[Rfam]
RNA sequence: UGCAGCCCCGUCAAAUUCAGACUGUGCCUCCUCCGUGGUGGGGACUGGCCAGCCGGCUGCCACGGCAACUUCUGUGGUCUGUGAGCCCUGUGUUCCCUCCCGUGGGACCCUGGGGAUAAAAUAAUGCCACAGACAUUG
Numbered sequence: 001u002g003c004a005g006c007c008c009c010g011u012c013a014a015a016u017u018c019a020g021a022c023u024g025u026g027c028c029u030c031c032u033c034c035g036u037g038g039u040g041g042g043g044a045c046u047g048g049c050c051a052g053c054c055g056g057c058u059g060c061c062a063c064g065g066c067a068a069c070u071u072c073u074g075u076g077g078u079c080u081g082u083g084a085g086c087c088c089u090g091u092g093u094u095c096c097c098u099c100c101c102g103u104g105g106g107a108c109c110c111u112g113g114g115g116a117u118a119a120a121a122u123a124a125u126g127c128c129a130c131a132g133a134c135a136u137u138g
Stems, first nucleotide, its partner, number of pairs: 002060004018047003022043002025040004074130005086115003090110001
Background:
A member of the RNA family "Small nucleolar RNA SNORA5" from Gavia stellata, 138 nucleotides long. NCBI's taxonomy places the organism under Eukaryota, Metazoa, Chordata, Dipnotetrapodomorpha, Gavia. ACA5 is a member of the H/ACA class of snoRNA that guide the sites of modification of uridines to pseudouridines. The family has 6 seed sequences and 2,226 matches in Rfam 15.1. By type it is an H/ACA-box small nucleolar RNA.